[Rfam]
RNA sequence: ACGAACCGCUCGUCCAUUGCGGUUCCUGCGUGCCGUCCGCAGCCACCUGACCCACUGCCCGCGACGUCUUUUAGCA
Numbered sequence: 001a002c003g004a005a006c007c008g009c010u011c012g013u014c015c016a017u018u019g020c021g022g023u024u025c026c027u028g029c030g031u032g033c034c035g036u037c038c039g040c041a042g043c044c045a046c047c048u049g050a051c052c053c054a055c056u057g058c059c060c061g062c063g064a065c066g067u068c069u070u071u072u073a074g075c076a
Stems, first nucleotide, its partner, number of pairs: 003015001005013002020035004025030001047074004054069001
The record is a 76-nucleotide RNA sequence from Xanthomonas oryzae, which matches "Xanthomonas sRNA sX9" in Rfam.
Taxonomically the source falls in Xanthomonas oryzae pv. oryzae (Bacteria, Pseudomonadati, Lysobacterales, Lysobacteraceae).
The base pairs follow the family's consensus structure, which was predicted with RNAalifold.